[Rfam]
RNA sequence: GGACGGGGACGACCCCGUUCGGCAUGUUUGACGCGGGGACGACCCUG
Numbered sequence: 001g002g003a004c005g006g007g008g009a010c011g012a013c014c015c016c017g018u019u020c021g022g023c024a025u026g027u028u029u030g031a032c033g034c035g036g037g038g039a040c041g042a043c044c045c046u047g
Base pairs, nucleotide, nucleotide: 001020002019003018004017005016006015007014008013034047035046036045037044038043
Notes
This 47-nucleotide RNA from Kaistia hirudinis belongs to the Rfam family "Guanidine-II riboswitch aptamer (mini-ykkC)". The organism belongs to Kaistia, within Bacteria. About the family: Simpler in structure and has fewer highly conserved nucleotide positions than the ykkC-yxkD leader. A search with the family's covariance model found it, with a score of 43 bits.